The record is a 209-nucleotide RNA sequence from Nitrobacter winogradskyi, which matches "Bradyrhizobiaceae sRNA BjrC174" in Rfam. Rfam classes the family as a small RNA. NCBI's taxonomy places the organism under Bacteria, Alphaproteobacteria, Hyphomicrobiales, Nitrobacteraceae, Nitrobacter winogradskyi. On this family, see Madhugiri et al., RNA Biol 2012: "Small RNAs of the Bradyrhizobium/Rhodopseudomonas lineage and their analysis".

RNA sequence: AUAACAAGAACGUUAGGUAAAAUCAUAAUGCAGCCCAAAUUCCGACAAGCAACCGCCCCGCUGAACUGCGAAAAAACAUUCUCUGCGAUGGCCCGAUUCUUUUGGAACCGGUUCCUCAGCCCCCAGCCCCCCGGGGCCAUCAGGAUCGGGCCUAUUCGCAGAGAUCAAUUUCGGAGUUGCAAAAGCCCGGACCCGGUGUCGGGCUUUUU
Dot-bracket structure: .........................................(......)................................(((((((.(((((((((((..(((..((((.......((.....))...))))..)))..)))))))))))...))))))).....................((((((.((.....))))))))....